This 122-nucleotide RNA sequence from Rhodococcus sp. SMB37 belongs to the Rfam family "Group II catalytic intron D1-D4-2".
Gene Ontology term of the family: Group II intron splicing.
About the family: Group II introns are found in rRNA, tRNA and mRNA of organelles in fungi, plants and protists, and also in mRNA in bacteria.
A reference for the family is Lehmann and Schmidt (2003), "Group II introns: structure and catalytic versatility of large natural ribozymes", Crit Rev Biochem Mol Biol.
The match comes from Rfam's covariance-model search (89 bits).
The pairing is the family consensus, mapped onto this sequence.
RNA sequence: GAAGGAGUUGUGGCCCUUCGGAGUCGCCAGUCGGGUGGGAGGCUUCAAACCACCUCAUGCUGCGUUGGCUGAAGACCGUCGUGGUGAGCGAUGAGGAAAAGGCGCUGGUAGAAGCGUCAGGC
Numbered sequence: 001g002a003a004g005g006a007g008u009u010g011u012g013g014c015c016c017u018u019c020g021g022a023g024u025c026g027c028c029a030g031u032c033g034g035g036u037g038g039g040a041g042g043c044u045u046c047a048a049a050c051c052a053c054c055u056c057a058u059g060c061u062g063c064g065u066u067g068g069c070u071g072a073a074g075a076c077c078g079u080c081g082u083g084g085u086g087a088g089c090g091a092u093g094a095g096g097a098a099a100a101g102g103c104g105c106u107g108g109u110a111g112a113a114g115c116g117u118c119a120g121g122c
Base pairs, nucleotide, nucleotide: 001019002018003017004016005015020046021045022044023043024042025041027038028037029036051121053096054095055094056093057092058091059085060084062082063081064080066078067077068076101118102117103116104115105114106113